Source information:
The record is a 138-nucleotide RNA from Labeo rohita, which matches "Small nucleolar RNA SNORA5" in Rfam. From the family's description: ACA5 is a member of the H/ACA class of snoRNA that guide the sites of modification of uridines to pseudouridines. The family's RNA type in Rfam is H/ACA-box small nucleolar RNA. Lineage of the source: Eukaryota > Bilateria > Gnathostomata > Labeoninae > Labeo. Its Rfam clan is "SNORA5 clan".
RNA sequence: UGCAGUCUUGUCAAAUUCAGUGUUUCCUCUUCAGUGGACCACACUGGCCAAAAUGGCUGCAACAGUAAAUAAGUAGUCUAAAGGCCCCAUGUUCUUAUCUACAAUGAGCUCUGGGGACAGAAUAGUCUACUAACAUGC
Dot-bracket structure: .((((............((((((.(((........)))..))))))..........))))............((((.(......(((((......................)))))........).))))........